The record is a 207-nucleotide RNA from Candidatus Epulonipiscioides saccharophilum, which matches "Group II catalytic intron D1-D4-5" in Rfam.
Its family is annotated with Group II intron splicing in the Gene Ontology.
NCBI's taxonomy places the organism under Bacteria, Clostridia, Lachnospirales, Lachnospiraceae, Candidatus Epulonipiscioides.
[Rfam]
RNA sequence: AAGAACUAAUAAUCUGAACGAUCGAAUGAGAGGGUAACGCCUUGAAAGGUCGUCCAUAAAUCUCCGAAUGGCGUGAAUAUGGUAAAAUAUUAAACGUCAUAAGCUCGGUAAAGUUGGCUGAGAGCAUACCCAAGUACUAGGAAGUCCUAGAAAACGGAAAAGUGAACCAGAGGUGGUCAAGUAUGUGAUAGGUCGGUGGUCAAAAUU
Numbered sequence: 001a002a003g004a005a006c007u008a009a010u011a012a013u014c015u016g017a018a019c020g021a022u023c024g025a026a027u028g029a030g031a032g033g034g035u036a037a038c039g040c041c042u043u044g045a046a047a048g049g050u051c052g053u054c055c056a057u058a059a060a061u062c063u064c065c066g067a068a069u070g071g072c073g074u075g076a077a078u079a080u081g082g083u084a085a086a087a088u089a090u091u092a093a094a095c096g097u098c099a100u101a102a103g104c105u106c107g108g109u110a111a112a113g114u115u116g117g118c119u120g121a122g123a124g125c126a127u128a129c130c131c132a133a134g135u136a137c138u139a140g141g142a143a144g145u146c147c148u149a150g151a152a153a154a155c156g157g158a159a160a161a162g163u164g165a166a167c168c169a170g171a172g173g174u175g176g177u178c179a180a181g182u183a184u185g186u187g188a189u190a191g192g193u194c195g196g197u198g199g200u201c202a203a204a205a206u207u
Stems, first nucleotide, its partner, number of pairs: 018053006031043004054199004064108004068100006074093001076091005115195005124186006130157002138152001163179002166177004

Description:
Rfam's curators write: Group II introns are found in rRNA, tRNA and mRNA of organelles in fungi, plants and protists, and also in mRNA in bacteria. On this family, see Bonen and Vogel, Trends Genet 2001: "The ins and outs of group II introns".